[Rfam]
RNA sequence: ACCUUUCUGAAUCCGUGCCGAGUUCUCAUCAGAUGCCAACCCACGAGGGCUGACGAGACUUCCAAGAUAAAUGAAUUG
Numbered sequence: 001a002c003c004u005u006u007c008u009g010a011a012u013c014c015g016u017g018c019c020g021a022g023u024u025c026u027c028a029u030c031a032g033a034u035g036c037c038a039a040c041c042c043a044c045g046a047g048g049g050c051u052g053a054c055g056a057g058a059c060u061u062c063c064a065a066g067a068u069a070a071a072u073g074a075a076u077u078g
Stems, first nucleotide, its partner, number of pairs: 004075003008071001011068003016064002020061003024058004029053002

The record is a 78-nucleotide RNA sequence from Schistosoma margrebowiei, which matches "mir-3492 microRNA precursor family" in Rfam. Rfam links the family to the GO terms RISC complex and miRNA-mediated post-transcriptional gene silencing.